[Rfam]
RNA sequence: CCAACUGCCAUGAUGGCCGUAACAGAAGUACUCACACUGUGGCCCCUGUCAGAUUCCAACAAAUCUGCUAAUUUCUGCU
Numbered sequence: 001c002c003a004a005c006u007g008c009c010a011u012g013a014u015g016g017c018c019g020u021a022a023c024a025g026a027a028g029u030a031c032u033c034a035c036a037c038u039g040u041g042g043c044c045c046c047u048g049u050c051a052g053a054u055u056c057c058a059a060c061a062a063a064u065c066u067g068c069u070a071a072u073u074u075c076u077g078c079u
Base pairs, nucleotide, nucleotide: 015044016043017042018041021079023077024076025075026074027072028040029039030038050067051066052065053064054063055062
A member of the RNA family "Mammalian CPEB3 ribozyme" from Crocodylus porosus, 79 nucleotides long. From the family's description: The mammalian CPEB3 ribozyme is a self cleaving RNA located in the second intron of the CPEB3 gene which belongs to a family of genes regulating messenger RNA polyadenylation.